The family of this 191-nucleotide RNA from Kribbella sp. VKM Ac-2500 is "c-di-AMP riboswitch aptamer (ydaO/yuaA leader)".

[Rfam]
RNA sequence: GUGUGUCAACGCCGAGCCCUGUCAGGCGCACAUGCUCCCCUCGAACAACCAAGGCAGGGGUGGGGGACCCAGGAGGUUGGGUCUCGACCGUGAGUGGUCGGAACCCUGGGGUGAAGUCCGCGGGAGCGGACCGGGCUAUGACUCUCAGCCCGAACCCGACAGCUAACUCCGCAGGCGUCGGGAGACAACCA
Numbered sequence: 001g002u003g004u005g006u007c008a009a010c011g012c013c014g015a016g017c018c019c020u021g022u023c024a025g026g027c028g029c030a031c032a033u034g035c036u037c038c039c040c041u042c043g044a045a046c047a048a049c050c051a052a053g054g055c056a057g058g059g060g061u062g063g064g065g066g067a068c069c070c071a072g073g074a075g076g077u078u079g080g081g082u083c084u085c086g087a088c089c090g091u092g093a094g095u096g097g098u099c100g101g102a103a104c105c106c107u108g109g110g111g112u113g114a115a116g117u118c119c120g121c122g123g124g125a126g127c128g129g130a131c132c133g134g135g136c137u138a139u140g141a142c143u144c145u146c147a148g149c150c151c152g153a154a155c156c157c158g159a160c161a162g163c164u165a166a167c168u169c170c171g172c173a174g175g176c177g178u179c180g181g182g183a184g185a186c187a188a189c190c191a
Base pairs, nucleotide, nucleotide: 010177011176012175013174017059018058019057020056021055022054023053060172061171062170063169064168065167070108071107072106073105109157110156111155117130118129119128120127133151134150135149136148

Its family is annotated with regulation of gene expression and cyclic-di-AMP binding in the Gene Ontology.